[Rfam]
RNA sequence: UUUUAGCCCAGAUUGUAGCGGCAUCCUUUUAAUGUUGCCUGAGCGGAGUCGAAGGUAACAUUAAAAGAUAUAGCGGAAAGCUGGAAAUAGC
Numbered sequence: 001u002u003u004u005a006g007c008c009c010a011g012a013u014u015g016u017a018g019c020g021g022c023a024u025c026c027u028u029u030u031a032a033u034g035u036u037g038c039c040u041g042a043g044c045g046g047a048g049u050c051g052a053a054g055g056u057a058a059c060a061u062u063a064a065a066a067g068a069u070a071u072a073g074c075g076g077a078a079a080g081c082u083g084g085a086a087a088u089a090g091c
Stems, first nucleotide, its partner, number of pairs: 009083003013079002018074002023069003029064012
Background
Rfam assigns this 91-nucleotide sequence from Paenimyroides tangerinum to the family "Flavo-1 RNA". It scores 74 bits against the family's covariance model.